[Rfam]
Description: This 69-nucleotide RNA belongs to the Rfam family "RAGATH-18 RNA". Rfam classes the family as a small RNA. The sequence is in the family's curated seed alignment.

RNA sequence: ACUAUGGAGAGUACAAGGACCUAUGAGUAAAUAACUUUGUUAUUGAAAAUAUACUCGUUGAAAUAGUAA
Numbered sequence: 001a002c003u004a005u006g007g008a009g010a011g012u013a014c015a016a017g018g019a020c021c022u023a024u025g026a027g028u029a030a031a032u033a034a035c036u037u038u039g040u041u042a043u044u045g046a047a048a049a050u051a052u053a054c055u056c057g058u059u060g061a062a063a064u065a066g067u068a069a
Base pairs, nucleotide, nucleotide: 001067002066003065004064005063009056010055011054012053013052022051023050024049030044031043032042034040035039